[Rfam]
RNA sequence: CUGAGGUGCAUUGUAGUUGCAUUGCAUGUGCAAAAGCAGAAGUGCAAUGUAACAGCAGUGCAGCUCAG
Dot-bracket structure: ((((.(((((((((.(..(.(((((((..............))))))).)..).)))))))).)))))
RNA: mir-33 microRNA precursor family